[Rfam]
RNA sequence: AGUCCCGGUGACUCACUCAACCUGCGUGUGAUGUAAUUUUAAUGUCGUCACAACCUCCUUGAGUGAGCGACCGGGCGG
Numbered sequence: 001a002g003u004c005c006c007g008g009u010g011a012c013u014c015a016c017u018c019a020a021c022c023u024g025c026g027u028g029u030g031a032u033g034u035a036a037u038u039u040u041a042a043u044g045u046c047g048u049c050a051c052a053a054c055c056u057c058c059u060u061g062a063g064u065g066a067g068c069g070a071c072c073g074g075g076c077g078g
Stems, first nucleotide, its partner, number of pairs: 009069002012067009024055001027052007

This 78-nucleotide sequence from Photinus pyralis belongs to the Rfam family "mir-67 microRNA precursor family". The organism belongs to Photinus, within Eukaryota.